A member of the RNA family "mir-135 microRNA precursor family" from Megalops atlanticus, 87 nucleotides long. Rfam links the family to the GO terms RISC complex and gene silencing by miRNA. It scores 72 bits against the family's covariance model.
RNA sequence: UCACGGCUGUGUCCUAUGGCUUUCUAUUCCUAUGUGAUUGGUCUGCCGUAUCUCAUGUAGGGUUCAAAGCCAUUGGGUACAGAGUGA
Numbered sequence: 001u002c003a004c005g006g007c008u009g010u011g012u013c014c015u016a017u018g019g020c021u022u023u024c025u026a027u028u029c030c031u032a033u034g035u036g037a038u039u040g041g042u043c044u045g046c047c048g049u050a051u052c053u054c055a056u057g058u059a060g061g062g063u064u065c066a067a068a069g070c071c072a073u074u075g076g077g078u079a080c081a082g083a084g085u086g087a
Stems, first nucleotide, its partner, number of pairs: 002086003007082008016073008026064001028062010